Rfam assigns this 118-nucleotide sequence from Paenibacillus antarcticus to the family "Bacillus sRNA ncr1015". For this family Rfam cites "Identification of regulatory RNAs in Bacillus subtilis" (Irnov et al., Nucleic Acids Res, 2010).

RNA sequence: UGAUACAAUCAAAUUGUAAGUCUAUUUAACUUAUUUGAGUCGUGAACCGAUUAUAUCAUCGUGUCUAUUUAUAUGCAAUAUAAAAGAACCUGAUAAGUUUUAUCAGGUUCUUUUUUGA
Numbered sequence: 001u002g003a004u005a006c007a008a009u010c011a012a013a014u015u016g017u018a019a020g021u022c023u024a025u026u027u028a029a030c031u032u033a034u035u036u037g038a039g040u041c042g043u044g045a046a047c048c049g050a051u052u053a054u055a056u057c058a059u060c061g062u063g064u065c066u067a068u069u070u071a072u073a074u075g076c077a078a079u080a081u082a083a084a085a086g087a088a089c090c091u092g093a094u095a096a097g098u099u100u101u102a103u104c105a106g107g108u109u110c111u112u113u114u115u116u117g118a
Stems, first nucleotide, its partner, number of pairs: 033072002037068001038064001041061002082114012
The family's RNA type in Rfam is small RNA.